[Rfam]
RNA sequence: AAAAGCCCGAGGGCAGCUUACGCUCGAAAGAGUGAGGAAAGUCCCCUCUCCACGGUGAGUUCCAACUGCCGCAAGUCAGUGCCCCGGGAGGGACGGUUCAGGGAAAAGAAAAAUACGGCUCCGACAAAGGAUGAUUCUCAGGAUGACGUUCUCGGAAUAACCGAUGGAAACCCUUCCUGGAAGGAGAAAGUCUAAACAGGCCUUAUGAUGUCACCGAGAGGGCCGGGUAAGACGCAGCCAUAUGGCGAAAGUCGAAUGCUGCCAGCCCGAAAGGGGUAACAGAAAGGGGCUUACUCCGGGCAUUU
Numbered sequence: 001a002a003a004a005g006c007c008c009g010a011g012g013g014c015a016g017c018u019u020a021c022g023c024u025c026g027a028a029a030g031a032g033u034g035a036g037g038a039a040a041g042u043c044c045c046c047u048c049u050c051c052a053c054g055g056u057g058a059g060u061u062c063c064a065a066c067u068g069c070c071g072c073a074a075g076u077c078a079g080u081g082c083c084c085c086g087g088g089a090g091g092g093a094c095g096g097u098u099c100a101g102g103g104a105a106a107a108g109a110a111a112a113a114u115a116c117g118g119c120u121c122c123g124a125c126a127a128a129g130g131a132u133g134a135u136u137c138u139c140a141g142g143a144u145g146a147c148g149u150u151c152u153c154g155g156a157a158u159a160a161c162c163g164a165u166g167g168a169a170a171c172c173c174u175u176c177c178u179g180g181a182a183g184g185a186g187a188a189a190g191u192c193u194a195a196a197c198a199g200g201c202c203u204u205a206u207g208a209u210g211u212c213a214c215c216g217a218g219a220g221g222g223c224c225g226g227g228u229a230a231g232a233c234g235c236a237g238c239c240a241u242a243u244g245g246c247g248a249a250a251g252u253c254g255a256a257u258g259c260u261g262c263c264a265g266c267c268c269g270a271a272a273g274g275g276g277u278a279a280c281a282g283a284a285a286g287g288g289g290c291u292u293a294c295u296c297c298g299g300g301c302a303u304u305u
Base pairs, nucleotide, nucleotide: 001305002304003303005301006300007299008298009297010295011294012263013262014261015260016259017258021034022033023032024031025030039292040291041290043289044288045287046286047285048186049185050184051183053216054215055214056213057212060182061181062180063179064178065080066079067078068077081094083092084091085090095177096176100174101173102172103171116163117162118161120157121155122154123153124152136143137142190233191232192231193230199224200223201222202221203220